[Rfam]
RNA: TPP riboswitch aptamer (THI element)
RNA sequence: UGGUCGAUACACGGGAGUCCUGGGGUACGCAGGGCUGAGAGUGGACACGCCGUCCUUACCGUCAAUACCUGAACCGGAUCAUGCCGGCGCAGGGAGUGAGGUGGUUGUGAGA
Numbered sequence: 001u002g003g004u005c006g007a008u009a010c011a012c013g014g015g016a017g018u019c020c021u022g023g024g025g026u027a028c029g030c031a032g033g034g035c036u037g038a039g040a041g042u043g044g045a046c047a048c049g050c051c052g053u054c055c056u057u058a059c060c061g062u063c064a065a066u067a068c069c070u071g072a073a074c075c076g077g078a079u080c081a082u083g084c085c086g087g088c089g090c091a092g093g094g095a096g097u098g099a100g101g102u103g104g105u106u107g108u109g110a111g112a
Base pairs, nucleotide, nucleotide: 008098009097010096011062012061013060014059016056017035018034019033020032021031043055044054045053046052068093069092070091071090074087075086076085077084